[Rfam]
RNA sequence: AAGUAGUGUGACAUGCCCGUUUGGGAUAUACUCUGAAAUGAUUAUUUAUUAAUUAAUUGCUUUGGGAAAAUGGGGUGUUACAAUUGA
Numbered sequence: 001a002a003g004u005a006g007u008g009u010g011a012c013a014u015g016c017c018c019g020u021u022u023g024g025g026a027u028a029u030a031c032u033c034u035g036a037a038a039u040g041a042u043u044a045u046u047u048a049u050u051a052a053u054u055a056a057u058u059g060c061u062u063u064g065g066g067a068a069a070a071u072g073g074g075g076u077g078u079u080a081c082a083a084u085u086g087a
Stems, first nucleotide, its partner, number of pairs: 005084001007082008016074006
Rfam assigns this 87-nucleotide RNA from Medicago truncatula to the family "MIR2617 microRNA precursor family". NCBI's taxonomy places the organism under Eukaryota, Viridiplantae, Tracheophyta, Magnoliopsida, Medicago. It scores 52 bits against the family's covariance model.